[Rfam]
RNA: Plastid-psbN 5UTR RNA
Organism: Hibiscus trionum
RNA sequence: AGCACACCCAUCAAAGGAGUCGUUCCCCAUCCAGGAACAACCUUGCCAUAUUCUGAAAUC
Numbered sequence: 001a002g003c004a005c006a007c008c009c010a011u012c013a014a015a016g017g018a019g020u021c022g023u024u025c026c027c028c029a030u031c032c033a034g035g036a037a038c039a040a041c042c043u044u045g046c047c048a049u050a051u052u053c054u055g056a057a058a059u060c
Base pairs, nucleotide, nucleotide: 016044017043019041020040022038023037024036025035026034